tRNA: a 71-nucleotide RNA from Phytophthora infestans. The match comes from Rfam's covariance-model search (53 bits). Rfam classes the family as a transfer RNA. For this family Rfam cites "The tertiary structure of tRNA and the development of the genetic code" (Hou, Trends Biochem Sci, 1993). The organism belongs to Phytophthora infestans, within Eukaryota.
RNA sequence: CUCUUUAUGGUGUAAUGGUUAGCACUCUGGACUGUGAAUCCAGCGAUCCGGGUUCAAAUCCCGGUAGGAGC
Number, nucleotide and partner (000 for none) at each position: 001c070002u069003c068004u000005u067006u066007a065008u000009g000010g025011u024012g023013u022014a000015a000016u000017g000018g000019u000020u000021a000022g013023c012024a011025c010026u000027c043028u042029g041030g040031a039032c000033u000034g000035u000036g000037a000038a000039u031040c030041c029042a028043g027044c000045g000046a000047u000048c064049c063050g062051g061052g060053u000054u000055c000056a000057a000058a000059u000060c052061c051062c050063g049064g048065u007066a006067g005068g003069a002070g001071c000